[Rfam]
RNA sequence: GGUCCUUGAUUUGGGUAGAGUUGCACCUUGUUUGGUGGUACCUGUCUCAUUUCAGCCAGGGACAAAACAACUUUUUGUUUAUCCCAGCUUGGCUUUUGGUCUGUGCCUGUGCCUGGUUCAUGCCCUGGACACAAAG
Numbered sequence: 001g002g003u004c005c006u007u008g009a010u011u012u013g014g015g016u017a018g019a020g021u022u023g024c025a026c027c028u029u030g031u032u033u034g035g036u037g038g039u040a041c042c043u044g045u046c047u048c049a050u051u052u053c054a055g056c057c058a059g060g061g062a063c064a065a066a067a068c069a070a071c072u073u074u075u076u077g078u079u080u081a082u083c084c085c086a087g088c089u090u091g092g093c094u095u096u097u098g099g100u101c102u103g104u105g106c107c108u109g110u111g112c113c114u115g116g117u118u119c120a121u122g123c124c125c126u127g128g129a130c131a132c133a134a135a136g
Stems, first nucleotide, its partner, number of pairs: 002063007011055004018048003023041001025039003076131006091124003097120003101116003105112002
Annotation
This 136-nucleotide RNA sequence from Molossus molossus belongs to the Rfam family "Small nucleolar RNA SNORA48". About the family: The snoRNA ACA 48 has been identified to guide pseudouridylation of the residue U3797 in the 28S rRNA subunit. Gene Ontology terms of the family: RNA processing and nucleolus. The base pairs follow the family's consensus structure, which was predicted with RNAalifold. A reference for the family is Ofengand and Bakin (1997), "Mapping to nucleotide resolution of pseudouridine residues in large subunit ribosomal RNAs from representative eukaryotes, prokaryotes, archaebacteria, mitochondria and chloroplasts", J Mol Biol. Rfam classes the family as an H/ACA-box small nucleolar RNA.